The record is a 283-nucleotide RNA sequence from Macaca nemestrina, which matches "Mason-Pfizer monkey virus packaging signal" in Rfam.
Lineage of the source: Eukaryota > Metazoa > Tetrapoda > Amniota > Macaca.
A reference for the family is Mustafa et al. (2004), "Mutational analysis of the predicted secondary RNA structure of the Mason-Pfizer monkey virus packaging signal", Virus Res.
The match comes from Rfam's covariance-model search (153 bits).
By type it is a cis-regulatory element.
This family represents a group of sequences that are related to the Mason-Pfizer monkey virus (MPMV) packaging signal. The packaging signal is located in the 5' UTR and is required for specific RNA encapsidation.
RNA sequence: UGGCGCCCGAACACGGACCUGGAAACGAGGGACUCUGUGAGGAAGAGGACGCUCAAAGGAUGGUCGACGCUAACAAGAGACAAAAGAUUAAACUGAUCACCGCGGGACCUGCCGCGUCAGGAUCUGAAGGUAAGUGAGGCGUCCGAAAUGGACAAGAGAAUUAAAGUCAGCAUCAAAUAUAAUGUAGACAAUUAAAAGAGGCUUUAACAGAUACGAGGAGUAAAGGUUAAAGUAAAUGACUUGUUUAAAUUAUUUUUGAUUUUGGAAAAGAUAACUUGCCCUU
Numbered sequence: 001u002g003g004c005g006c007c008c009g010a011a012c013a014c015g016g017a018c019c020u021g022g023a024a025a026c027g028a029g030g031g032a033c034u035c036u037g038u039g040a041g042g043a044a045g046a047g048g049a050c051g052c053u054c055a056a057a058g059g060a061u062g063g064u065c066g067a068c069g070c071u072a073a074c075a076a077g078a079g080a081c082a083a084a085a086g087a088u089u090a091a092a093c094u095g096a097u098c099a100c101c102g103c104g105g106g107a108c109c110u111g112c113c114g115c116g117u118c119a120g121g122a123u124c125u126g127a128a129g130g131u132a133a134g135u136g137a138g139g140c141g142u143c144c145g146a147a148a149u150g151g152a153c154a155a156g157a158g159a160a161u162u163a164a165a166g167u168c169a170g171c172a173u174c175a176a177a178u179a180u181a182a183u184g185u186a187g188a189c190a191a192u193u194a195a196a197a198g199a200g201g202c203u204u205u206a207a208c209a210g211a212u213a214c215g216a217g218g219a220g221u222a223a224a225g226g227u228u229a230a231a232g233u234a235a236a237u238g239a240c241u242u243g244u245u246u247a248a249a250u251u252a253u254u255u256u257u258g259a260u261u262u263u264g265g266a267a268a269a270g271a272u273a274a275c276u277u278g279c280c281c282u283u
Base pairs, nucleotide, nucleotide: 006031007030008029036048038046087131088130089129093126097122098120101116102115103114104113105112142152143151144150145149162206163205164204166202167201168200214258215257216256217255218254219251220250221249224242225241226240227239228238229237267283268282270280272278
Dot-bracket structure: .....(((....................)))....(.(.......).)......................................(((...(...((..(((((......)))))...).)...)..)))..........((((...)))).........(((.(((...............................))).))).......((((((((..((((((.......))))))......)))..)))))........((.(.(.....).).))